Overview: Shown here is a 105-nucleotide sequence from Capsicum annuum, a member of the family "Small nucleolar RNA snoR97". Taxonomically the source falls in Capsicum (Eukaryota, Spermatophyta, Magnoliopsida, asterids). The family has 7 seed sequences and 862 matches in Rfam 15.1. Gene Ontology terms of the family: nucleolus and RNA processing.

RNA sequence: AAUUUAUAGUGGGGUUAGGGUCUGAAAAACUCAUAAAUUUAGUGCUGUUUAUCAGCUUCUUCUCCUGAAAAUCACGGGAUGGAGUUAAAUCAUGGCACUACAUGU
Number, nucleotide and partner (000 for none) at each position: 001a000002a000003u000004u000005u000006a000007u000008a000009g000010u000011g000012g000013g000014g000015u000016u000017a000018g000019g000020g000021u000022c000023u000024g000025a000026a000027a000028a000029a000030c000031u000032c000033a000034u000035a000036a000037a000038u000039u000040u000041a099042g098043u097044g096045c095046u094047g093048u000049u000050u000051a000052u000053c000054a086055g085056c084057u083058u082059c081060u000061u079062c078063u077064c076065c000066u000067g000068a000069a000070a000071a000072u000073c000074a000075c000076g064077g063078g062079a061080u000081g059082g058083a057084g056085u055086u054087a000088a000089a000090u000091c000092a000093u047094g046095g045096c044097a043098c042099u041100a000101c000102a000103u000104g000105u000